[Rfam]
RNA sequence: CCGUAAAAGACUUAAAACCGCACACGUAUCGACACCACGACCUGGGUGCCUUCGGGUUGGUCGCGGGGAUGCGUGGAGGCCCAAC
Numbered sequence: 001c002c003g004u005a006a007a008a009g010a011c012u013u014a015a016a017a018c019c020g021c022a023c024a025c026g027u028a029u030c031g032a033c034a035c036c037a038c039g040a041c042c043u044g045g046g047u048g049c050c051u052u053c054g055g056g057u058u059g060g061u062c063g064c065g066g067g068g069a070u071g072c073g074u075g076g077a078g079g080c081c082c083a084a085c
Stems, first nucleotide, its partner, number of pairs: 023075008035066002038063005048057003
RNA: t44 RNA
Organism: Atopomonas hussainii